[Rfam]
RNA sequence: UUGCAUGGCUGAAUUAGUGAUCGGCCAUGCGUUUAUCAACUAGGAGUACAUCAUGUCACUAAGCGUUGAAGCGAAAGCUCAAAUCGUUGCUGAACACGGCCGUGGCCAG
Numbered sequence: 001u002u003g004c005a006u007g008g009c010u011g012a013a014u015u016a017g018u019g020a021u022c023g024g025c026c027a028u029g030c031g032u033u034u035a036u037c038a039a040c041u042a043g044g045a046g047u048a049c050a051u052c053a054u055g056u057c058a059c060u061a062a063g064c065g066u067u068g069a070a071g072c073g074a075a076a077g078c079u080c081a082a083a084u085c086g087u088u089g090c091u092g093a094a095c096a097c098g099g100c101c102g103u104g105g106c107c108a109g
Stems, first nucleotide, its partner, number of pairs: 007026006040063002043060002046057001